Overview
The record is a 69-nucleotide RNA sequence from Mycolicibacterium sediminis, which matches "ASpks TB sRNA" in Rfam. Lineage of the source: Bacteria > Mycobacteriales > Mycobacteriaceae > Mycobacterium > Mycobacterium (subgen. Mycolicibacterium). The base pairs follow the family's consensus structure, which is taken from published work.
Nucleotides: 069
Stems, first nucleotide, its partner, number of pairs: 014026002017023001029064002032059002037054002041050001043048001
Number, partner (000 for none) and nucleotide at each position: 001000c002000u003000u004000g005000a006000u007000c008000g009000a010000c011000c012000c013000g014026a015025g016000g017023u018000a019000c020000a021000g022000c023017g024000g025015c026014u027000c028000g029064g030063c031000g032059c033058g034000g035000u036000u037054c038053u039000g040000g041050c042000c043048g044000u045000a046000g047000g048043u049000c050041g051000c052000g053038a054037g055000c056000a057000g058033u059032g060000c061000c062000u063030g064029c065000g066000c067000c068000u069000c